[Rfam]
RNA sequence: GUACUCCCUCUGUAAACUAAUAUAAGAGCGUUUAGAAUACUAAAAUAGUGAUCUAAACGCUCUUAUAUUAGUUUACGGAGAGAGUAC
Numbered sequence: 001g002u003a004c005u006c007c008c009u010c011u012g013u014a015a016a017c018u019a020a021u022a023u024a025a026g027a028g029c030g031u032u033u034a035g036a037a038u039a040c041u042a043a044a045a046u047a048g049u050g051a052u053c054u055a056a057a058c059g060c061u062c063u064u065a066u067a068u069u070a071g072u073u074u075a076c077g078g079a080g081a082g083a084g085u086a087c
Base pairs, nucleotide, nucleotide: 003085004084005083008080009079010078011077013075014074015073016072017071019069020068021067022066023065024064025063026062027061028060029059030058031057032056033055034054035053036052038050039049040048041047
RNA: MIR1120/MIR1122 microRNA precursor family
Organism: Triticum turgidum